[Rfam]
RNA sequence: UCGCCCACAAUGCCUUUCAACGGUUUCAACACAGAUGUGGGUUGGCGUGCAUUGAUUGGACGCUUCCUACUCGGCGGUGCCGAAUCCCCCAUGGGGGGCCUCUCUGUUGGAGUCGUUGCCGAUGCCCGGUUCGGGUGAUCUUCUUCGGCUCCUUCAGUGGUCUCCUCGCGCUAACCCAGUAGCGUGUGGUUUUUAGCGGGCUAUCAAGCCCGCUUUUUUUU
Number, nucleotide and partner (000 for none) at each position: 001u000002c000003g000004c000005c160006c159007a158008c000009a000010a000011u000012g000013c000014c000015u000016u000017u000018c000019a117020a116021c115022g114023g113024u112025u111026u110027c109028a108029a107030c106031a105032c000033a103034g102035a101036u000037g099038u098039g000040g000041g000042u000043u000044g070045g000046c000047g066048u000049g000050c000051a000052u000053u060054g000055a000056u000057u000058g000059g000060a053061c000062g000063c000064u000065u000066c047067c000068u000069a000070c044071u083072c082073g081074g080075c079076g000077g000078u000079g075080c074081c073082g072083a071084a000085u000086c097087c096088c095089c094090c000091a000092u000093g000094g089095g088096g087097g086098g038099c037100c000101u035102c034103u033104c000105u031106g030107u029108u028109g027110g026111a025112g024113u023114c022115g021116u020117u019118g000119c000120c000121g141122a000123u000124g000125c000126c000127c000128g000129g000130u000131u000132c000133g000134g000135g000136u000137g000138a000139u000140c000141u121142u000143c000144u000145u000146c000147g000148g000149c000150u000151c000152c000153u000154u000155c000156a000157g000158u007159g006160g005161u000162c000163u000164c189165c188166u000167c186168g185169c184170g183171c182172u181173a180174a000175c000176c000177c000178a000179g000180u173181a172182g171183c170184g169185u168186g167187u000188g165189g164190u000191u000192u000193u000194u000195a214196g213197c212198g211199g210200g209201c208202u207203a000204u000205c000206a000207a202208g201209c200210c199211c198212g197213c196214u195215u000216u000217u000218u000219u000220u000221u000
Annotation:
Rfam assigns this 221-nucleotide RNA sequence to the family "Burkholderia sRNA Bp1_Cand871_SIPHT". On this family, see Khoo et al., BMC Genomics 2012: "Computational discovery and RT-PCR validation of novel Burkholderia conserved and Burkholderia pseudomallei unique sRNAs". Gene Ontology term of the family: bacterial biofilm matrix. Rfam's curators put it in the seed alignment. Pairs were carried over by alignment from the consensus structure, which was predicted with CMfinder.